[Rfam]
Nucleotides: 142
Base pairs, nucleotide, nucleotide: 012126013125014124018035019034020033021032022031023030036122037121038120040118041117046055047054056106057105063083064082065081066080086101087100088099089098
Number, partner (000 for none) and nucleotide at each position: 001000a002000a003000a004000a005000a006000u007000a008000g009000u010000u011000a012126g013125c014124c015000g016000a017000a018035u019034c020033u021032c022031u023030c024000a025000u026000u027000c028000a029000g030023g031022g032021g033020a034019g035018a036122g037121c038120g039000g040118g041117g042000g043000a044000a045000c046055c047054a048000c049000a050000u051000a052000u053000a054047u055046g056106g057105g058000u059000g060000a061000a062000u063083c064082c065081c066080c067000a068000g069000c070000c071000u072000g073000u074000a075000a076000a077000g078000g079000c080066g081065g082064g083063g084000a085000g086101g087100g088099g089098c090000a091000u092000g093000c094000u095000u096000u097000a098089g099088c100087u101086c102000u103000a104000a105057c106056c107000u108000a109000u110000a111000a112000g113000c114000u115000a116000a117041c118040c119000a120038c121037g122036u123000a124014g125013g126012c127000a128000u129000u130000a131000a132000a133000g134000c135000a136000a137000g138000c139000u140000a141000u142000u
This 142-nucleotide RNA from Desulfobacca acetoxidans belongs to the Rfam family "c-di-AMP riboswitch aptamer (ydaO/yuaA leader)".